[Rfam]
RNA sequence: UAUUGAUAAAUACUAAAUCACACACAUAUCGACACGUUCUUCGGGGUGCCCUUAUUGGGUCGAAGAUAUGGGAUAUGUGGAGGUCUAAC
Numbered sequence: 001u002a003u004u005g006a007u008a009a010a011u012a013c014u015a016a017a018u019c020a021c022a023c024a025c026a027u028a029u030c031g032a033c034a035c036g037u038u039c040u041u042c043g044g045g046g047u048g049c050c051c052u053u054a055u056u057g058g059g060u061c062g063a064a065g066a067u068a069u070g071g072g073a074u075a076u077g078u079g080g081a082g083g084u085c086u087a088a089c
Stems, first nucleotide, its partner, number of pairs: 023079008035070003040064004048060004
RNA: t44 RNA
Organism: Shewanella pealeana